[Rfam]
RNA: Eukaryotic small subunit ribosomal RNA, nucleotides 2103 to 2251
Organism: Trypanosoma brucei
RNA sequence: CCGCCCGUCGUUGUUUCCGAUGAUGGUGCAAUACAGGUGAUCGGACCGUCGCUCGUCUCGGGCGACCGAAAGUUCACCGAUAUUGCUUCAAUAGAGGAAGCAAAAGUCGUAACAAGGUAGCUGUAGGUGAACCUGCAGCUGGAUCAUUU
Numbered sequence: 001c002c003g004c005c006c007g008u009c010g011u012u013g014u015u016u017c018c019g020a021u022g023a024u025g026g027u028g029c030a031a032u033a034c035a036g037g038u039g040a041u042c043g044g045a046c047c048g049u050c051g052c053u054c055g056u057c058u059c060g061g062g063c064g065a066c067c068g069a070a071a072g073u074u075c076a077c078c079g080a081u082a083u084u085g086c087u088u089c090a091a092u093a094g095a096g097g098a099a100g101c102a103a104a105a106g107u108c109g110u111a112a113c114a115a116g117g118u119a120g121c122u123g124u125a126g127g128u129g130a131a132c133c134u135g136c137a138g139c140u141g142g143a144u145c146a147u148u149u
Base pairs, nucleotide, nucleotide: 001116003113006109007108009106011103012102013101014100015099016098017097018096021093022092024090025089026088028086029085030084031083032082033081036078037077038076039075040074042072046068048066049065050064051063052062053061054060055059118141119140120139121138122137123136124135125134126133127132